The record is a 76-nucleotide RNA sequence from Cephalopterus ornatus, which matches "Small nucleolar RNA R38" in Rfam. It is annotated as a C/D-box small nucleolar RNA. The source organism's lineage runs through Eukaryota, Eumetazoa, Amniota, Archosauria and Cephalopterus. Rfam 15.1 lists 2,295 matches to the family in 1,305 species. From the family's description: snoR38 is a C/D box small nucleolar RNA conserved across yeast, human, Arabidopsis and rice. It is encoded in the intron of elongation factor-1 gamma in both pombe and cerevisiae. snoR38 guides the methylation of 2'-O-ribose sites in 28S rRNA.
RNA sequence: CUGAGCCAGUGAUGAUAAGAGUUAUCCCUGUCCGAAACUGAUCUUUCCUCUGUGGAAGUAUCACUCUGAGGCUCGG
Numbered sequence: 001c002u003g004a005g006c007c008a009g010u011g012a013u014g015a016u017a018a019g020a021g022u023u024a025u026c027c028c029u030g031u032c033c034g035a036a037a038c039u040g041a042u043c044u045u046u047c048c049u050c051u052g053u054g055g056a057a058g059u060a061u062c063a064c065u066c067u068g069a070g071g072c073u074c075g076g
Base pairs, nucleotide, nucleotide: 001076002075003074004073005072006071007070